[Rfam]
A member of the RNA family "Antisense RNA which regulates isiA expression" from Leptolyngbya sp. 'hensonii', 178 nucleotides long.
RNA sequence: AAUAGCUGAAGAUCGGCACUGGAUUUAAGGUUGGGUUGGUAAUUAGCCGCACGUUGUGGAUUGCUGGAUCGUAAAGUCCACCCCAGGCGAUCGCCUUUGCUACCAGCAAUAGUGCUCCAGUUCCUAACAGCAUCAGAUGAAUACCUAGGAUUGUCGUCAUCUGGCUGGCAUCAUCCCA
Numbered sequence: 001a002a003u004a005g006c007u008g009a010a011g012a013u014c015g016g017c018a019c020u021g022g023a024u025u026u027a028a029g030g031u032u033g034g035g036u037u038g039g040u041a042a043u044u045a046g047c048c049g050c051a052c053g054u055u056g057u058g059g060a061u062u063g064c065u066g067g068a069u070c071g072u073a074a075a076g077u078c079c080a081c082c083c084c085a086g087g088c089g090a091u092c093g094c095c096u097u098u099g100c101u102a103c104c105a106g107c108a109a110u111a112g113u114g115c116u117c118c119a120g121u122u123c124c125u126a127a128c129a130g131c132a133u134c135a136g137a138u139g140a141a142u143a144c145c146u147a148g149g150a151u152u153g154u155c156g157u158c159a160u161c162u163g164g165c166u167g168g169c170a171u172c173a174u175c176c177c178a
Base pairs, nucleotide, nucleotide: 136175137174138173139172140171145168146167147166148165
The family's consensus secondary structure was predicted with PFOLD. NCBI's taxonomy places the organism under Bacteria, Bacillati, Cyanophyceae, Leptolyngbyaceae, Leptolyngbya.